[Rfam]
RNA sequence: AGCACAAAUGAUGAUUAUAAGGGACUUAAUACUGAAGUAUGAUGACACUUGAGCAUAAACUGAUGUGC
Numbered sequence: 001a002g003c004a005c006a007a008a009u010g011a012u013g014a015u016u017a018u019a020a021g022g023g024a025c026u027u028a029a030u031a032c033u034g035a036a037g038u039a040u041g042a043u044g045a046c047a048c049u050u051g052a053g054c055a056u057a058a059a060c061u062g063a064u065g066u067g068c
Stems, first nucleotide, its partner, number of pairs: 002068005
Small nucleolar RNA SNORD82: a 68-nucleotide RNA sequence from Atrichornis clamosus. About the family: snoRNA U82 or Z25 is found in both humans and mice. Rfam classes the family as a C/D-box small nucleolar RNA. The literature on the family includes a 2002 paper in Mol Cell Biol by Galardi et al., "Purified box C/D snoRNPs are able to reproduce site-specific 2'-O-methylation of target RNA in vitro". The family's consensus secondary structure was predicted with PFOLD. Rfam links the family to the GO terms nucleolus and RNA processing. Rfam 15.1 lists 649 matches to the family in 590 species.